Shown here is a 92-nucleotide RNA sequence, a member of the family "Rhodo-rpoB RNA". The base pairs follow the family's consensus structure, which is taken from published work. The sequence is in the family's curated seed alignment.
[Rfam]
RNA sequence: GGCUCGGGCGCAGACCGGUGGGACGGUCUGCAGGAAUGGAGCCCCACCCCGUUUCGCACGUCACGCGCGGCCGAAGCCCGGCGGUCCGCGCG
Numbered sequence: 001g002g003c004u005c006g007g008g009c010g011c012a013g014a015c016c017g018g019u020g021g022g023a024c025g026g027u028c029u030g031c032a033g034g035a036a037u038g039g040a041g042c043c044c045c046a047c048c049c050c051g052u053u054u055c056g057c058a059c060g061u062c063a064c065g066c067g068c069g070g071c072c073g074a075a076g077c078c079c080g081g082c083g084g085u086c087c088g089c090g091c092g
Stems, first nucleotide, its partner, number of pairs: 001043005010031008064092005069086005